[Rfam]
RNA sequence: GAAAAGACGGGUGAGAUCCCCGUCCGCCGAAAGCCUAAGGAUUCCUGGGUAAAGGUCAUCUGCCCAGGGUAAGUCGGCCCCUAAGGCGAGGACGAAAGUCGUAGUCGAUGGGAAACUGGUGAAGAUUCCAGUACCUUAGCAAGUUUCGAAGGGAUGACGCAUGAGGUGAAACCCGGCCGGAGACUGGUAGUUUCGGUCGAAGCACUGAGCUGGAGAGGGGCGUAGGCAAAUCCGCGCUCUGAGGUGAGGUGUGACAGCGAGGCGAUCUACGGAAAGCUGAAGCGGGCGUAAUCACGGUGCCAAGAAAUAAUCUCUAAGGAUAGGCUUGUUAAGACCGUACCGUAAACCGACACAGGUAGGCGGGAUGAGCAAUCUAAGGCGCU
Numbered sequence: 001g002a003a004a005a006g007a008c009g010g011g012u013g014a015g016a017u018c019c020c021c022g023u024c025c026g027c028c029g030a031a032a033g034c035c036u037a038a039g040g041a042u043u044c045c046u047g048g049g050u051a052a053a054g055g056u057c058a059u060c061u062g063c064c065c066a067g068g069g070u071a072a073g074u075c076g077g078c079c080c081c082u083a084a085g086g087c088g089a090g091g092a093c094g095a096a097a098g099u100c101g102u103a104g105u106c107g108a109u110g111g112g113a114a115a116c117u118g119g120u121g122a123a124g125a126u127u128c129c130a131g132u133a134c135c136u137u138a139g140c141a142a143g144u145u146u147c148g149a150a151g152g153g154a155u156g157a158c159g160c161a162u163g164a165g166g167u168g169a170a171a172c173c174c175g176g177c178c179g180g181a182g183a184c185u186g187g188u189a190g191u192u193u194c195g196g197u198c199g200a201a202g203c204a205c206u207g208a209g210c211u212g213g214a215g216a217g218g219g220g221c222g223u224a225g226g227c228a229a230a231u232c233c234g235c236g237c238u239c240u241g242a243g244g245u246g247a248g249g250u251g252u253g254a255c256a257g258c259g260a261g262g263c264g265a266u267c268u269a270c271g272g273a274a275a276g277c278u279g280a281a282g283c284g285g286g287c288g289u290a291a292u293c294a295c296g297g298u299g300c301c302a303a304g305a306a307a308u309a310a311u312c313u314c315u316a317a318g319g320a321u322a323g324g325c326u327u328g329u330u331a332a333g334a335c336c337g338u339a340c341c342g343u344a345a346a347c348c349g350a351c352a353c354a355g356g357u358a359g360g361c362g363g364g365a366u367g368a369g370c371a372a373u374c375u376a377a378g379g380c381g382c383u
Stems, first nucleotide, its partner, number of pairs: 006024006025381004033361004039341002044068006053061002075337003080111002085106003089102001091100003115132005135333011146319002150315006159300004165293003172286004176197006198257001202252004209245003217240007225233002261278003347356002363375004

Source information
The family of this 383-nucleotide part of an RNA from Gracilinema caldarium is "Bacterial large subunit ribosomal RNA". The family's consensus secondary structure is taken from published work. It scores 2773 bits against the family's covariance model.